A member of the RNA family "Transposase-2 RNA" from Actinoplanes friuliensis, 67 nucleotides long. The organism belongs to Actinoplanes friuliensis, within Bacteria.

[Rfam]
RNA sequence: GAAGCGUCAACCCGGCACGACACCAGUCGGUUAGACCGGGACCGUCCCUCCGCAAGGCGGGACUACC
Numbered sequence: 001g002a003a004g005c006g007u008c009a010a011c012c013c014g015g016c017a018c019g020a021c022a023c024c025a026g027u028c029g030g031u032u033a034g035a036c037c038g039g040g041a042c043c044g045u046c047c048c049u050c051c052g053c054a055a056g057g058c059g060g061g062a063c064u065a066c067c
Stems, first nucleotide, its partner, number of pairs: 011040005018029004044063005050057002
The family has 151 seed sequences and 214 matches in Rfam 15.1. Rfam classes the family as a small RNA. The family's consensus secondary structure is taken from published work.